[Rfam]
RNA: 7SK RNA
Organism: Copsychus sechellarum
RNA sequence: GGAUAUGAGUAAUCUGGCUGUGGGAUGUGAUAUGCCAUUGGUUGUAUGGGUUGAUCUGACUGACCUGGCUAGCUGAGGCAGCGGUUCCCUUUCUCCCUUGACAUUCCAUGUGUAUUCCUCCUGAUACUGUGUGCUUAGUUAAUGAGGACAGCCUCCCUAAUAAACAUGGUACUAUUCAUUGGUCAAGGGUAUGUGGUAGCUGCUCUCCCCUGCUGGGAUCUCUAAGUAAGCUCAAGGUCCACUUGUAAAUGAAUGUAGGGUAGUCAAGUCCCAUCCAAGUGAGAAGCUGUAUGCAGCAGUCUACCAAUUUUU
Numbered sequence: 001g002g003a004u005a006u007g008a009g010u011a012a013u014c015u016g017g018c019u020g021u022g023g024g025a026u027g028u029g030a031u032a033u034g035c036c037a038u039u040g041g042u043u044g045u046a047u048g049g050g051u052u053g054a055u056c057u058g059a060c061u062g063a064c065c066u067g068g069c070u071a072g073c074u075g076a077g078g079c080a081g082c083g084g085u086u087c088c089c090u091u092u093c094u095c096c097c098u099u100g101a102c103a104u105u106c107c108a109u110g111u112g113u114a115u116u117c118c119u120c121c122u123g124a125u126a127c128u129g130u131g132u133g134c135u136u137a138g139u140u141a142a143u144g145a146g147g148a149c150a151g152c153c154u155c156c157c158u159a160a161u162a163a164a165c166a167u168g169g170u171a172c173u174a175u176u177c178a179u180u181g182g183u184c185a186a187g188g189g190u191a192u193g194u195g196g197u198a199g200c201u202g203c204u205c206u207c208c209c210c211u212g213c214u215g216g217g218a219u220c221u222c223u224a225a226g227u228a229a230g231c232u233c234a235a236g237g238u239c240c241a242c243u244u245g246u247a248a249a250u251g252a253a254u255g256u257a258g259g260g261u262a263g264u265c266a267a268g269u270c271c272c273a274u275c276c277a278a279g280u281g282a283g284a285a286g287c288u289g290u291a292u293g294c295a296g297c298a299g300u301c302u303a304c305c306a307a308u309u310u311u312u
Base pairs, nucleotide, nucleotide: 001107002106003105005099007097009095011092012091016089017088022086023085028080029079031077033072035068036067037066040065041064042063043062044060045059115169116168119164121138122137123136124135127133139160140159141158146156147155148154199269200268201267205263206262208260209259210258211257212256213255220251223248226246227245228244229243230242277312278311279310283305286300287299288298289297290296